[Rfam]
RNA sequence: GGCCAACUUUGCGCAGGCGGAACUUGAUCGCCCACGGAAGCGAUGAUCGCCUUCAUUGAAGAUCAGCGCAUUGUUUACGGCGUCGAGUCAAUUUGCAGGGUUUUGCCGAUUGCGCCG
Numbered sequence: 001g002g003c004c005a006a007c008u009u010u011g012c013g014c015a016g017g018c019g020g021a022a023c024u025u026g027a028u029c030g031c032c033c034a035c036g037g038a039a040g041c042g043a044u045g046a047u048c049g050c051c052u053u054c055a056u057u058g059a060a061g062a063u064c065a066g067c068g069c070a071u072u073g074u075u076u077a078c079g080g081c082g083u084c085g086a087g088u089c090a091a092u093u094u095g096c097a098g099g100g101u102u103u104u105g106c107c108g109a110u111u112g113c114g115c116c117g
Stems, first nucleotide, its partner, number of pairs: 016032005078117005089112002092109002095106004
Rfam assigns this 117-nucleotide RNA sequence from Celeribacter baekdonensis to the family "ALIL pseudoknot".
It scores 95 bits against the family's covariance model.
The literature on the family includes a 2008 paper in J Biol Chem by Mazauric et al., "Apical loop-internal loop RNA pseudoknots: a new type of stimulator of -1 translational frameshifting in bacteria".
Pairs were carried over by alignment from the consensus structure, which is taken from published work.
The family has 26 seed sequences and 2,146 matches in Rfam 15.1.